[Rfam]
RNA: 7SK RNA
Organism: Saimiri boliviensis
RNA sequence: GGAUGUAACGGUGAUCUGGCUGCGACAGCUGUCACUCCAUUGAUCGCCAGGGUUGAUUUGGCUGAUCUGGCUGGCUAGGCGGGUGUCCCCUUCCUCCCUCACUGCUCCAUGUGUGUCCCUCCCAAAGCUGCGCACUCAGUCAAAGAGGAUGACCAUCCCCCACAGAGGAGGACCGGUCUUCGAUCAAGGGUAUACGAGUAGCUGCGCUCCCCUGCUAGAACCUCCAAACUCUCAAGGUCCAUUUGUAGGAGAAUGUAGGGUAGUCAAGCUUCCAAGACUCCAGACACAUCCAAAUGAGGGGCUGCAUGCGGCAGUCUGCCUUUCUAA
Dot-bracket structure: (((.((.(.((.((...((....((((.(((((.(((((..(((((((...........))).)))))))..))...))))).)))).)).))..)).).))...))).......(((((((..(.(.......))..)(......(((......)))...)..)))).)).............................(((...((.((((((......((((..((...............)).))))...)))))).))...)))........................(.((((.(((((.....)))))...))))..)..